A member of the RNA family "Bacterial RNase P class A" from Sulfitobacter mediterraneus, 405 nucleotides long.
It is annotated as a ribozyme.
From the family's description: Ribonuclease P (RNase P) is a ubiquitous endoribonuclease, found in archaea, bacteria and eukarya as well as chloroplasts and mitochondria.

[Rfam]
RNA sequence: GCGGAAGGCCGGAUGACCGCGGCGAUUCAAAUCGUCGAGGAAAGUCCGGACUCCAAAAAACAACGGUGCCGGGUAACGCCCGGGCGGGGCAACCCGACGGAGAGCGCCACAGAAAUGAAACCGCCCUUUCGGGUCUGUGUCGGGCAACCGAUACCGCCGCAGGGGUAAGGGUGAAACGGUGGGGUAAGAGCCCACCGCGCCGCUGGCAACAGGGGCGGCACGGCAAGCCCCACCGGGAGCAAUGCCAAAUAGGGACCGCGUGCCGCCGCAAGGGGGCGGGGCUGUUUUUGCCCCAGCAGGUUCGGGUUGGCAGCUAUAGCUGCAUCGGCAACGGUGCGGUCAGAGGAAUGGUCAUCCAAGGGCGCAAGCCCUGGACAGAAUCCGGCUUAUAGGCCUUCCGCGCAU
Numbered sequence: 001g002c003g004g005a006a007g008g009c010c011g012g013a014u015g016a017c018c019g020c021g022g023c024g025a026u027u028c029a030a031a032u033c034g035u036c037g038a039g040g041a042a043a044g045u046c047c048g049g050a051c052u053c054c055a056a057a058a059a060a061c062a063a064c065g066g067u068g069c070c071g072g073g074u075a076a077c078g079c080c081c082g083g084g085c086g087g088g089g090c091a092a093c094c095c096g097a098c099g100g101a102g103a104g105c106g107c108c109a110c111a112g113a114a115a116u117g118a119a120a121c122c123g124c125c126c127u128u129u130c131g132g133g134u135c136u137g138u139g140u141c142g143g144g145c146a147a148c149c150g151a152u153a154c155c156g157c158c159g160c161a162g163g164g165g166u167a168a169g170g171g172u173g174a175a176a177c178g179g180u181g182g183g184g185u186a187a188g189a190g191c192c193c194a195c196c197g198c199g200c201c202g203c204u205g206g207c208a209a210c211a212g213g214g215g216c217g218g219c220a221c222g223g224c225a226a227g228c229c230c231c232a233c234c235g236g237g238a239g240c241a242a243u244g245c246c247a248a249a250u251a252g253g254g255a256c257c258g259c260g261u262g263c264c265g266c267c268g269c270a271a272g273g274g275g276g277c278g279g280g281g282c283u284g285u286u287u288u289u290g291c292c293c294c295a296g297c298a299g300g301u302u303c304g305g306g307u308u309g310g311c312a313g314c315u316a317u318a319g320c321u322g323c324a325u326c327g328g329c330a331a332c333g334g335u336g337c338g339g340u341c342a343g344a345g346g347a348a349u350g351g352u353c354a355u356c357c358a359a360g361g362g363c364g365c366a367a368g369c370c371c372u373g374g375a376c377a378g379a380a381u382c383c384g385g386c387u388u389a390u391a392g393g394c395c396u397u398c399c400g401c402g403c404a405u
Stems, first nucleotide, its partner, number of pairs: 001401010011390001012356007020037007042388003046385005051239004059288002062285001064235005069083005084098001085096004099230002104228002106224003121170002123166006130159002178196006197219001198217004203212003243312004253303005281291002320339008